[Rfam]
RNA sequence: GUCCCAGUAGCUCAGCUGGAUAGAGCAAUAGCCUUCUAAGCUAUGGGUCGCAGGUUCGAAUCCUGCCUGGGACA
Numbered sequence: 001g002u003c004c005c006a007g008u009a010g011c012u013c014a015g016c017u018g019g020a021u022a023g024a025g026c027a028a029u030a031g032c033c034u035u036c037u038a039a040g041c042u043a044u045g046g047g048u049c050g051c052a053g054g055u056u057c058g059a060a061u062c063c064u065g066c067c068u069g070g071g072a073c074a
Base pairs, nucleotide, nucleotide: 001073002072003071004070005069006068007067010026011025012024013023028044029043030042031041032040050066051065052064053063054062

tRNA: a 74-nucleotide RNA from Virgibacillus necropolis. A search with the family's covariance model found it, with a score of 74 bits. From the family's description: Transfer RNA (tRNA) molecules are approximately 80 nucleotides in length.